The family of this 112-nucleotide RNA from Hibiscus trionum is "MIR1520 microRNA precursor family". Taxonomically the source falls in Hibiscus (Eukaryota, Streptophyta, Streptophytina, rosids). Its family is annotated with RISC complex and miRNA-mediated post-transcriptional gene silencing in the Gene Ontology. The match comes from Rfam's covariance-model search (53 bits). The base pairs follow the family's consensus structure, which was predicted with RNAalifold.
[Rfam]
RNA sequence: CUCCAAUUGGGUGACACGUGUCACUACCUGAUUGGAGGUGGAAAAUUAAUUAAAUUAAUUAAAUAAAAAUAAUUAAAGACUUCCAAUAAGGUGGUGACACGUGUCACCAUCU
Numbered sequence: 001c002u003c004c005a006a007u008u009g010g011g012u013g014a015c016a017c018g019u020g021u022c023a024c025u026a027c028c029u030g031a032u033u034g035g036a037g038g039u040g041g042a043a044a045a046u047u048a049a050u051u052a053a054a055u056u057a058a059u060u061a062a063a064u065a066a067a068a069a070u071a072a073u074u075a076a077a078g079a080c081u082u083c084c085a086a087u088a089a090g091g092u093g094g095u096g097a098c099a100c101g102u103g104u105c106a107c108c109a110u111c112u
Stems, first nucleotide, its partner, number of pairs: 015103002018100002022096003026092004031087003